The family of this 165-nucleotide RNA from Streptomyces fructofermentans is "c-di-AMP riboswitch aptamer (ydaO/yuaA leader)". The organism belongs to Streptomyces, within Bacteria.
RNA sequence: GAUGACAGGUCGACAGAAGUGGAUCGGCAGGAGUGGAGGACCCAGGCACGACGGACCACCGGAGAGAUCCGAGUGGCCCUUGGGGUGAAGCCGCGUCAGCGGCCGGGCAACUUCGCCAGCCCGAAUCCGACAGGUCAUCCUUCACAGGCGGCUGACGAAGGGUUG
Numbered sequence: 001g002a003u004g005a006c007a008g009g010u011c012g013a014c015a016g017a018a019g020u021g022g023a024u025c026g027g028c029a030g031g032a033g034u035g036g037a038g039g040a041c042c043c044a045g046g047c048a049c050g051a052c053g054g055a056c057c058a059c060c061g062g063a064g065a066g067a068u069c070c071g072a073g074u075g076g077c078c079c080u081u082g083g084g085g086u087g088a089a090g091c092c093g094c095g096u097c098a099g100c101g102g103c104c105g106g107g108c109a110a111c112u113u114c115g116c117c118a119g120c121c122c123g124a125a126u127c128c129g130a131c132a133g134g135u136c137a138u139c140c141u142u143c144a145c146a147g148g149c150g151g152c153u154g155a156c157g158a159a160g161g162g163u164u165g
Stems, first nucleotide, its partner, number of pairs: 033145006043082004083128003091102004105122004

A search with the family's covariance model found it, with a score of 43 bits.